[Rfam]
Description
Rfam assigns this 124-nucleotide sequence from Myotis myotis to the family "Small nucleolar RNA SNORA28". About the family: ACA28 is a member of the H/ACA class of snoRNA that guide the sites of modification of uridines to pseudouridines. The match comes from Rfam's covariance-model search (100 bits). For this family Rfam cites "RNomics: an experimental approach that identifies 201 candidates for novel, small, non-messenger RNAs in mouse" (Huttenhofer et al., EMBO J, 2001). The source organism's lineage runs through Eukaryota, Euteleostomi, Eutheria, Laurasiatheria and Myotis. The family's consensus secondary structure was predicted with RNAfold.

RNA sequence: AAGCCACACUCUGGCAGAUGAUCAAAGUGGUCCUACAUAAUUUGAGCUUGCUAUAGCCACAAAGUCUAACCUAUUCUCGUGCUCUCUCCUCUAUGAGACAGGCCAUCAUAUAGACUUAGACAGA
Numbered sequence: 001a002a003g004c005c006a007c008a009c010u011c012u013g014g015c016a017g018a019u020g021a022u023c024a025a026a027g028u029g030g031u032c033c034u035a036c037a038u039a040a041u042u043u044g045a046g047c048u049u050g051c052u053a054u055a056g057c058c059a060c061a062a063a064g065u066c067u068a069a070c071c072u073a074u075u076c077u078c079g080u081g082c083u084c085u086c087u088c089c090u091c092u093a094u095g096a097g098a099c100a101g102g103c104c105a106u107c108a109u110a111u112a113g114a115c116u117u118a119g120a121c122a123g124a
Stems, first nucleotide, its partner, number of pairs: 009046003012037002017032003062117007072110003077105001079103002085098004